[Rfam]
The record is an 89-nucleotide RNA sequence from Alkalibaculum sporogenes, which matches "TPP riboswitch aptamer (THI element)" in Rfam. The match comes from Rfam's covariance-model search (72 bits). The family's consensus secondary structure is taken from published work. The organism belongs to Alkalibaculum, within Bacteria.
RNA sequence: AUUUUUCGCUAGGGGAGCCUAUGGCUGAGAUAUAACCCUUUGGACCUGAUCUGGAUAAUACCAGCGUGGGGAAGCGUUCUUAGCUUAGU
Numbered sequence: 001a002u003u004u005u006u007c008g009c010u011a012g013g014g015g016a017g018c019c020u021a022u023g024g025c026u027g028a029g030a031u032a033u034a035a036c037c038c039u040u041u042g043g044a045c046c047u048g049a050u051c052u053g054g055a056u057a058a059u060a061c062c063a064g065c066g067u068g069g070g071g072a073a074g075c076g077u078u079c080u081u082a083g084c085u086u087a088g089u
Base pairs, nucleotide, nucleotide: 007076008075009074010073011039012038013037014036016033017025018024019023045070046069047068048067051064052063053062054061